RNA sequence: AUCAGAGGCCCUGGCAAGGGCCUUCGAGUCGCGCUCUAACUCACCCACCUGAGCCGACUCGUGUCUGUACAGCCCACAAGGCGGUUUGACGAGAUUGCGACUGGAACGAAGUUGUCCCGAGGGACGGAAGCGCAUCAAACGGUACACGGCAAUGCCAGAUCGAAGCAGUUCGGCAACCACGAGCCACCCUGCCCGAGACGUCACGCCAAGGACCCGCCGACUUC
Numbered sequence: 001a002u003c004a005g006a007g008g009c010c011c012u013g014g015c016a017a018g019g020g021c022c023u024u025c026g027a028g029u030c031g032c033g034c035u036c037u038a039a040c041u042c043a044c045c046c047a048c049c050u051g052a053g054c055c056g057a058c059u060c061g062u063g064u065c066u067g068u069a070c071a072g073c074c075c076a077c078a079a080g081g082c083g084g085u086u087u088g089a090c091g092a093g094a095u096u097g098c099g100a101c102u103g104g105a106a107c108g109a110a111g112u113u114g115u116c117c118c119g120a121g122g123g124a125c126g127g128a129a130g131c132g133c134a135u136c137a138a139a140c141g142g143u144a145c146a147c148g149g150c151a152a153u154g155c156c157a158g159a160u161c162g163a164a165g166c167a168g169u170u171c172g173g174c175a176a177c178c179a180c181g182a183g184c185c186a187c188c189c190u191g192c193c194c195g196a197g198a199c200g201u202c203a204c205g206c207c208a209a210g211g212a213c214c215c216g217c218c219g220a221c222u223u224c
Stems, first nucleotide, its partner, number of pairs: 005024008028058004035053001037051001041047001060148002065142001072082003084140002088136002090132002117127002165192004172185003204219002207216001